Shown here is a 99-nucleotide RNA from Desulfitobacterium hafniense, a member of the family "SAM riboswitch aptamer (S box leader)". The sequence is in the family's curated seed alignment. Rfam 15.1 lists 9,625 matches to the family in 4,158 species. The organism belongs to Desulfitobacterium hafniense, within Bacteria. The SAM riboswitch is found upstream of a number of genes which code for proteins involved in methionine or cysteine biosynthesis in Gram-positive bacteria.
RNA sequence: CUCUUAUCAAGAGAGGCGGAGGGACUGGCCCCAUGAAGCCCGGCAACCUACAUAUGUGAGGUGCUAAAUCCAGAGAACCAUCAGGUUCGAAGAUAAGAG
Numbered sequence: 001c002u003c004u005u006a007u008c009a010a011g012a013g014a015g016g017c018g019g020a021g022g023g024a025c026u027g028g029c030c031c032c033a034u035g036a037a038g039c040c041c042g043g044c045a046a047c048c049u050a051c052a053u054a055u056g057u058g059a060g061g062u063g064c065u066a067a068a069u070c071c072a073g074a075g076a077a078c079c080a081u082c083a084g085g086u087u088c089g090a091a092g093a094u095a096a097g098a099g
Stems, first nucleotide, its partner, number of pairs: 001099008013041001015040003021031003025073004042065004047061002049058003069091001075088005
Dot-bracket structure: ((((((((....(.(((...(((.[[[[)))......))))((((.(((((....))).))))))...(]]]].(((((....)))))..)))))))))